[Rfam]
RNA sequence: AUGGAAGUGAUGAUUAUUUCCCCAGAUGAUCGAAGUUGAAAUAACUGAGCGCAUUUUUUAUUCUCUCUUCUAGGGAGAAUCCAAGCCAGAAAUCUGAUCCAU
Numbered sequence: 001a002u003g004g005a006a007g008u009g010a011u012g013a014u015u016a017u018u019u020c021c022c023c024a025g026a027u028g029a030u031c032g033a034a035g036u037u038g039a040a041a042u043a044a045c046u047g048a049g050c051g052c053a054u055u056u057u058u059u060a061u062u063c064u065c066u067c068u069u070c071u072a073g074g075g076a077g078a079a080u081c082c083a084a085g086c087c088a089g090a091a092a093u094c095u096g097a098u099c100c101a102u
Stems, first nucleotide, its partner, number of pairs: 001102005